RNA sequence: UGGCAUACCCGUAGACCUUGCCUGACUGUGCCCGUGGCCAGGCAGGGGGGACAGUGUAUGCAAGAGUAACUAGGAGUUUGUGCUAGCUCUAGCCAGCUUAAUCAGCGGCUGGAUAAGUUGCAGUACUCCAACAUUG
Numbered sequence: 001u002g003g004c005a006u007a008c009c010c011g012u013a014g015a016c017c018u019u020g021c022c023u024g025a026c027u028g029u030g031c032c033c034g035u036g037g038c039c040a041g042g043c044a045g046g047g048g049g050g051a052c053a054g055u056g057u058a059u060g061c062a063a064g065a066g067u068a069a070c071u072a073g074g075a076g077u078u079u080g081u082g083c084u085a086g087c088u089c090u091a092g093c094c095a096g097c098u099u100a101a102u103c104a105g106c107g108g109c110u111g112g113a114u115a116a117g118u119u120g121c122a123g124u125a126c127u128c129c130a131a132c133a134u135u136g
Stems, first nucleotide, its partner, number of pairs: 003061006016047009073129004078125001081122003093112005